[Rfam]
RNA sequence: CAAUUAAAUUAAUCCUUGCGGAUUAGUGAAAUAUUCUUUCAGAAUAUGAAAUUGCUUAGCAAUGAAAUACGCC
Dot-bracket structure: .......((((((((....))))))))...((((((.....))))))...(((((...)))))..........

The family of this 73-nucleotide RNA is "Gut-1 RNA". Rfam classes the family as a small RNA.